[Rfam]
RNA sequence: UUAUUCUAAGGGCAAACUGUCCGAAAGGGCAGGACGCAAAGCAAUGGGCCUAAGGAUGGGGAUCAGACGCCUCUAGGGUUGCCAUGCCGCCAAA
Numbered sequence: 001u002u003a004u005u006c007u008a009a010g011g012g013c014a015a016a017c018u019g020u021c022c023g024a025a026a027g028g029g030c031a032g033g034a035c036g037c038a039a040a041g042c043a044a045u046g047g048g049c050c051u052a053a054g055g056a057u058g059g060g061g062a063u064c065a066g067a068c069g070c071c072u073c074u075a076g077g078g079u080u081g082c083c084a085u086g087c088c089g090c091c092a093a094a
Stems, first nucleotide, its partner, number of pairs: 012037002017032006041087003045084003048079003055073002058070001
Background: c-di-GMP-I riboswitch aptamer: a 94-nucleotide RNA sequence from Paenibacillus sp. NFR01. A reference for the family is Weinberg et al. (2007), "Identification of 22 candidate structured RNAs in bacteria using the CMfinder comparative genomics pipeline", Nucleic Acids Res. The family's consensus secondary structure is taken from published work.